[Rfam]
RNA sequence: GGGGGUAGAUGGGUCCUGGUGGGCCCUCCGGUCUUCAAAACCGGCGAAUGGGGUUCGGAGCCUCAUUGGUGUGUUCGAUUCGCACGUACUCCC
Numbered sequence: 001g002g003g004g005g006u007a008g009a010u011g012g013g014u015c016c017u018g019g020u021g022g023g024c025c026c027u028c029c030g031g032u033c034u035u036c037a038a039a040a041c042c043g044g045c046g047a048a049u050g051g052g053g054u055u056c057g058g059a060g061c062c063u064c065a066u067u068g069g070u071g072u073g074u075u076c077g078a079u080u081c082g083c084a085c086g087u088a089c090u091c092c093c
Stems, first nucleotide, its partner, number of pairs: 001093007008085001011026006028044005047067005070084004